[Rfam]
RNA sequence: GGGCCCGACCGGAAUUGACAGGAUGGCGAUACAGUUGUAAGCAUGCAGCGCGUUGUGAGACUAGCGCUUUAAUCUGAACUCUCAACUUUCAAACGGCGAAAAUAACUACGCCUUAGCUGCUUAAUUUAGAAUUAAGUAAGCUUUUGUCCCGCUGGUCUUCUGUUCGGUCAGGCCAGCAACCGGGGCAUCGAACGACGGAACUGGCCAGGGCGCAGGGUGUGUCCGCCCGGUAAGACAAUCACCUAAGGAAAACGGUACAGGCGCUCGGCUGGCCUUCCCUUUCCCGACAACUAAAUAGCCGAUAAGCAUGUAGAAAGCUUCAUGUGUACCAUGUUUGGACGAGAGUUCGAAUCUCUCCGGGUCCACUU
Numbered sequence: 001g002g003g004c005c006c007g008a009c010c011g012g013a014a015u016u017g018a019c020a021g022g023a024u025g026g027c028g029a030u031a032c033a034g035u036u037g038u039a040a041g042c043a044u045g046c047a048g049c050g051c052g053u054u055g056u057g058a059g060a061c062u063a064g065c066g067c068u069u070u071a072a073u074c075u076g077a078a079c080u081c082u083c084a085a086c087u088u089u090c091a092a093a094c095g096g097c098g099a100a101a102a103u104a105a106c107u108a109c110g111c112c113u114u115a116g117c118u119g120c121u122u123a124a125u126u127u128a129g130a131a132u133u134a135a136g137u138a139a140g141c142u143u144u145u146g147u148c149c150c151g152c153u154g155g156u157c158u159u160c161u162g163u164u165c166g167g168u169c170a171g172g173c174c175a176g177c178a179a180c181c182g183g184g185g186c187a188u189c190g191a192a193c194g195a196c197g198g199a200a201c202u203g204g205c206c207a208g209g210g211c212g213c214a215g216g217g218u219g220u221g222u223c224c225g226c227c228c229g230g231u232a233a234g235a236c237a238a239u240c241a242c243c244u245a246a247g248g249a250a251a252a253c254g255g256u257a258c259a260g261g262c263g264c265u266c267g268g269c270u271g272g273c274c275u276u277c278c279c280u281u282u283c284c285c286g287a288c289a290a291c292u293a294a295a296u297a298g299c300c301g302a303u304a305a306g307c308a309u310g311u312a313g314a315a316a317g318c319u320u321c322a323u324g325u326g327u328a329c330c331a332u333g334u335u336u337g338g339a340c341g342a343g344a345g346u347u348c349g350a351a352u353c354u355c356u357c358c359g360g361g362u363c364c365a366c367u368u
Base pairs, nucleotide, nucleotide: 001364002363003362004361005360006359007358019337020336021335023332024331025330026329030326031325032324033323034321037318038317042310043309044308045307046306047068048067049066050065051064054084055083057081058080059079112136113135114134115133116132118131120129145187146186147185148184149183150182151177152176153175154174157172158171159170163198164197205230206229208227209226212223216244217243247285248284250282251281252280254278255277260274261273262272265301269298270297271296341357342356343355344354345353
RNA: transfer-messenger RNA
Organism: Hufsiella ginkgonis